HNH endonuclease-associated RNA and ORF (HEARO) RNA: a 240-nucleotide RNA sequence from Caballeronia glathei. Taxonomically the source falls in Caballeronia (Bacteria, Pseudomonadota, Betaproteobacteria, Burkholderiales). On this family, see Weinberg et al., Nature 2009: "Exceptional structured noncoding RNAs revealed by bacterial metagenome analysis". The match comes from Rfam's covariance-model search (99 bits). By type it is a non-coding RNA gene.
[Rfam]
RNA sequence: GUCAAACACCCCGGCCUGAGGGCCGGAGCUUGCGGGAUCACUCGCGGGCUCGAGUUUGACCAGACCAAGCGGUAGCCAGUCCGCUACGUUGUGCAGAAGUACAAGACCCACCGCUGGAUGCUUCCUCAGUCCGGCGCUCUGGAAGUCGCAGCAGCAGACACGCCCCGGGUAGGCACGAAACGGGCUGCGACGAGGCGUCAAGCCGAAGCUGCUGCACAACAUGGUCGAGGGGAGCGGAGC
Number, nucleotide and partner (000 for none) at each position: 001g060002u059003c058004a057005a056006a055007c054008a000009c000010c028011c000012c025013g024014g000015c022016c021017u000018g000019a000020g000021g016022g015023c000024c013025g012026g000027a000028g010029c000030u000031u046032g045033c044034g043035g042036g041037a000038u000039c000040a000041c036042u035043c034044g033045c032046g031047g000048g000049c000050u000051c000052g000053a000054g007055u006056u005057u004058g003059a002060c001061c000062a000063g226064a225065c224066c223067a222068a085069g084070c083071g082072g081073u000074a000075g000076c000077c000078a000079g000080u000081c072082c071083g070084c069085u068086a000087c000088g220089u219090u218091g217092u216093g215094c214095a213096g212097a000098a210099g000100u000101a000102c000103a000104a000105g000106a000107c000108c142109c141110a000111c000112c136113g135114c134115u133116g132117g131118a130119u129120g000121c000122u234123u233124c232125c231126u230127c229128a000129g119130u118131c117132c116133g115134g114135c113136g112137c000138u000139c000140u000141g109142g108143a000144a000145g191146u190147c189148g188149c187150a186151g185152c184153a000154g000155c000156a000157g000158a000159c000160a000161c000162g000163c000164c000165c000166c000167g000168g000169g000170u000171a000172g000173g000174c000175a000176c000177g000178a000179a000180a000181c000182g000183g000184g152185c151186u150187g149188c148189g147190a146191c145192g000193a000194g000195g000196c000197g000198u000199c000200a000201a000202g000203c000204c000205g000206a000207a000208g000209c000210u098211g000212c096213u095214g094215c093216a092217c091218a090219a089220c088221a000222u067223g066224g065225u064226c063227g000228a000229g127230g126231g125232g124233a123234g122235c000236g000237g000238a000239g000240c000